[Rfam]
Nucleotides: 080
Base pairs, nucleotide, nucleotide: 001080002079003078004077
Number, partner (000 for none) and nucleotide at each position: 001080a002079u003078g004077c005000u006000a007000u008000g009000a010000u011000g012000a013000c014000a015000u016000c017000c018000a019000u020000a021000u022000a023000u024000g025000g026000u027000u028000u029000c030000g031000c032000u033000u034000c035000u036000g037000g038000c039000u040000g041000a042000a043000u044000u045000c046000c047000a048000g049000c050000g051000a052000u053000g054000a055000c056000a057000c058000u059000u060000u061000u062000c063000u064000c065000u066000u067000g068000g069000c070000u071000g072000u073000c074000u075000g076000a077004g078003c079002a080001u
Small nucleolar RNA SNORD53/SNORD92: an 80-nucleotide RNA sequence from Neogale vison. Rfam links the family to the GO terms RNA processing and nucleolus. The family has 37 seed sequences and 2,250 matches in Rfam 15.1. Clan: SNORD52 clan.